The family of this 133-nucleotide RNA from Candidatus Rhodobacter oscarellae is "FMN riboswitch aptamer (RFN element)". Pairs were carried over by alignment from the consensus structure, which is taken from published work. It scores 114 bits against the family's covariance model. Taxonomically the source falls in Rhodobacter (Bacteria, Pseudomonadati, Alphaproteobacteria, Rhodobacterales).
RNA sequence: GUUCGUUCUCAGGGCGGGGUGAAAUUCCCCACCGGCGGUGAUAGCCCGCGAGCGCCCCGUAUCACGCGGGGGUCUAGCAGAUCCGGUGGAAUUCCGGGGCCGACGGUCAUAGUCCGGAUGGAAGAGAAUGCGC
Numbered sequence: 001g002u003u004c005g006u007u008c009u010c011a012g013g014g015c016g017g018g019g020u021g022a023a024a025u026u027c028c029c030c031a032c033c034g035g036c037g038g039u040g041a042u043a044g045c046c047c048g049c050g051a052g053c054g055c056c057c058c059g060u061a062u063c064a065c066g067c068g069g070g071g072g073u074c075u076a077g078c079a080g081a082u083c084c085g086g087u088g089g090a091a092u093u094c095c096g097g098g099g100c101c102g103a104c105g106g107u108c109a110u111a112g113u114c115c116g117g118a119u120g121g122a123a124g125a126g127a128a129u130g131c132g133c
Stems, first nucleotide, its partner, number of pairs: 004130007017029003031113002033102002035049004044100002052078002082098005104116003